The record is a 120-nucleotide RNA sequence from Arthrobacter sp. SRS-W-1-2016, which matches "SAM (S-adenosyl methionine) riboswitch aptamer" in Rfam. Rfam describes the family as follows. SAM-IV is a mRNA element that regulates gene expression via direct sensing of S-adenosylmethionine (SAM or AdoMet). For this family Rfam cites "The aptamer core of SAM-IV riboswitches mimics the ligand-binding site of SAM-I riboswitches" (Weinberg et al., RNA, 2008). The family has 40 seed sequences and 2,360 matches in Rfam 15.1. The family's consensus secondary structure is taken from published work.
RNA sequence: CUUCAAGAGAUGUGGCGCCAAGCUCCGACUUGCCACACGCCAACCCCAUGUUCACGGGUGGUUCGGAUGAAGAAGCGGCCCGGCUCGGACCAGAGACAACCGAACGGGCAAGAGCAACUC
Numbered sequence: 001c002u003u004c005a006a007g008a009g010a011u012g013u014g015g016c017g018c019c020a021a022g023c024u025c026c027g028a029c030u031u032g033c034c035a036c037a038c039g040c041c042a043a044c045c046c047c048a049u050g051u052u053c054a055c056g057g058g059u060g061g062u063u064c065g066g067a068u069g070a071a072g073a074a075g076c077g078g079c080c081c082g083g084c085u086c087g088g089a090c091c092a093g094a095g096a097c098a099a100c101c102g103a104a105c106g107g108g109c110a111a112g113a114g115c116a117a118c119u120c
Stems, first nucleotide, its partner, number of pairs: 001075004009038001011037006021030002039062003044058003078109005085103004